[Rfam]
RNA: mir-965 microRNA precursor family
Organism: Arenaria interpres
RNA sequence: AACUGAUGAGGAAAUGUUAUACUCUUGUGACAAAUAUAUAAAACUAUACUUGGCACAAGAGUAUAACAUUUCCUCAUCAGCU
Numbered sequence: 001a002a003c004u005g006a007u008g009a010g011g012a013a014a015u016g017u018u019a020u021a022c023u024c025u026u027g028u029g030a031c032a033a034a035u036a037u038a039u040a041a042a043a044c045u046a047u048a049c050u051u052g053g054c055a056c057a058a059g060a061g062u063a064u065a066a067c068a069u070u071u072c073c074u075c076a077u078c079a080g081c082u
Base pairs, nucleotide, nucleotide: 003080004079005078006077007076009074010073011072013070014069017066018065019064020063021062024059025058026057027056028055029054